[Rfam]
Shown here is a 121-nucleotide RNA sequence from Priestia filamentosa, a member of the family "FMN riboswitch aptamer (RFN element)". NCBI's taxonomy places the organism under Bacteria, Bacillati, Bacillota, Bacillaceae, Priestia. The match comes from Rfam's covariance-model search (118 bits). Rfam links the family to the GO term FMN binding.
RNA sequence: GUUCAUCUUCGGGGCAGGGUGAAAUUCCCGACCGGCGGUUAUAGCCCGCGAGCUUUCAUUGAAAGCAGGAUUUGGUGAAAUUCCAAAGCCGACAGUACAGUCUGGAAGGGAGAAGGUGGAG
Numbered sequence: 001g002u003u004c005a006u007c008u009u010c011g012g013g014g015c016a017g018g019g020u021g022a023a024a025u026u027c028c029c030g031a032c033c034g035g036c037g038g039u040u041a042u043a044g045c046c047c048g049c050g051a052g053c054u055u056u057c058a059u060u061g062a063a064a065g066c067a068g069g070a071u072u073u074g075g076u077g078a079a080a081u082u083c084c085a086a087a088g089c090c091g092a093c094a095g096u097a098c099a100g101u102c103u104g105g106a107a108g109g110g111a112g113a114a115g116g117u118g119g120a121g
Stems, first nucleotide, its partner, number of pairs: 003119008017029003031101002033091002035049004044089002052066003071087005093104003